RNA: Small nucleolar RNA Z278
Organism: Artemisia annua
RNA sequence: GACUGUGAUGAUAUAAUCCGAAUAAAUGAGGUACGUGGAUCCAAGACCCUGUAUACAGGGAGAACCACUUGGUUGAAACUGUAGUUCACUUGAUAUUAAUGGAUUUAACUGAGGC
Numbered sequence: 001g002a003c004u005g006u007g008a009u010g011a012u013a014u015a016a017u018c019c020g021a022a023u024a025a026a027u028g029a030g031g032u033a034c035g036u037g038g039a040u041c042c043a044a045g046a047c048c049c050u051g052u053a054u055a056c057a058g059g060g061a062g063a064a065c066c067a068c069u070u071g072g073u074u075g076a077a078a079c080u081g082u083a084g085u086u087c088a089c090u091u092g093a094u095a096u097u098a099a100u101g102g103a104u105u106u107a108a109c110u111g112a113g114g115c
Stems, first nucleotide, its partner, number of pairs: 001115001003113001047060005